[Rfam]
This 86-nucleotide sequence from Miscanthus lutarioriparius belongs to the Rfam family "mir-156 microRNA precursor family". The family has 10 seed sequences and 1,401 matches in Rfam 15.1. Its family is annotated with miRNA-mediated post-transcriptional gene silencing and RISC complex in the Gene Ontology. Taxonomically the source falls in Miscanthus (Eukaryota, Streptophytina, Poales, Andropogoneae). A reference for the family is Ambros (2001), "microRNAs: tiny regulators with great potential", Cell. This family represents the plant microRNA (miRNA) precursor mir-156.
RNA sequence: UUGACAGAAGAGAGUGAGCACACGGCGCGACGAACGGCAUAAUACGUAUGUCGUCCUCGCCGCGUGCUCACUUCUCUUUCUGUCAA
Numbered sequence: 001u002u003g004a005c006a007g008a009a010g011a012g013a014g015u016g017a018g019c020a021c022a023c024g025g026c027g028c029g030a031c032g033a034a035c036g037g038c039a040u041a042a043u044a045c046g047u048a049u050g051u052c053g054u055c056c057u058c059g060c061c062g063c064g065u066g067c068u069c070a071c072u073u074c075u076c077u078u079u080c081u082g083u084c085a086a
Base pairs, nucleotide, nucleotide: 001086002085003084004083005082006081007080008079009078010076011075012074013072014071015070016069017068018067019066020065021064023062024061025060026059027058